[Rfam]
RNA sequence: UAUUGAUAAAGGCAAAUCCAUCGAAAGAUGGGGACGCAAAGCUAUAGGGGCUACCACGGAAAUCCGUAACGCCAGCCAGUUGCCGAU
Numbered sequence: 001u002a003u004u005g006a007u008a009a010a011g012g013c014a015a016a017u018c019c020a021u022c023g024a025a026a027g028a029u030g031g032g033g034a035c036g037c038a039a040a041g042c043u044a045u046a047g048g049g050g051c052u053a054c055c056a057c058g059g060a061a062a063u064c065c066g067u068a069a070c071g072c073c074a075g076c077c078a079g080u081u082g083c084c085g086a087u
Base pairs, nucleotide, nucleotide: 012037013036017032018031019030020029021028022027040081041080042079043078047077048076049073050072051071056067057066058065059064